Record summary:
A member of the RNA family "Bacterial large signal recognition particle RNA" from Clostridium chauvoei, 264 nucleotides long.

RNA sequence: CCGUGCUAGAUGGGGAGUUAGCGGUGCCCUGUAACCUGCAAUCCGCUAUAGCAGGAUUGAAUUCCUGGCAUAGGCUUUAAUUUGUAGGGUCUGCCCUAUGUAAGUGGUGUUGAUGGUCGGGUCCCAUGCGACGUAAGUGCAUGAACCUCGUCAGGUCUGGAAGGAAGCAGCGAUAAGUGAUUACUGCGUGUGACAUGGAUAAAUCUUACCAGAGCUAACUGCAUAGGUAACGCCUACAGAUUACUGCCAAAGCCAGGUGCGCGG
Numbered sequence: 001c002c003g004u005g006c007u008a009g010a011u012g013g014g015g016a017g018u019u020a021g022c023g024g025u026g027c028c029c030u031g032u033a034a035c036c037u038g039c040a041a042u043c044c045g046c047u048a049u050a051g052c053a054g055g056a057u058u059g060a061a062u063u064c065c066u067g068g069c070a071u072a073g074g075c076u077u078u079a080a081u082u083u084g085u086a087g088g089g090u091c092u093g094c095c096c097u098a099u100g101u102a103a104g105u106g107g108u109g110u111u112g113a114u115g116g117u118c119g120g121g122u123c124c125c126a127u128g129c130g131a132c133g134u135a136a137g138u139g140c141a142u143g144a145a146c147c148u149c150g151u152c153a154g155g156u157c158u159g160g161a162a163g164g165a166a167g168c169a170g171c172g173a174u175a176a177g178u179g180a181u182u183a184c185u186g187c188g189u190g191u192g193a194c195a196u197g198g199a200u201a202a203a204u205c206u207u208a209c210c211a212g213a214g215c216u217a218a219c220u221g222c223a224u225a226g227g228u229a230a231c232g233c234c235u236a237c238a239g240a241u242u243a244c245u246g247c248c249a250a251a252g253c254c255a256g257g258u259g260c261g262c263g264g
Base pairs, nucleotide, nucleotide: 001264002263003262004261005260006259009058010057011056012030013029014028015027017025018024019023035055036054037053038052039051064257065256066255067254068253069252073248074247075246079242080241081240082239083238084237085236086235087234088233092229093228096226097225098224099223100222101221104219105218106216107215108214114211115210116209117208119206120205121204122203124198125197126196127195128194129190130189132188133187134186135185140179141178142177148173149172150171151170156165157164158163
The family's consensus secondary structure is taken from published work.
It is annotated as a non-coding RNA gene.
A search with the family's covariance model found it, with a score of 198 bits.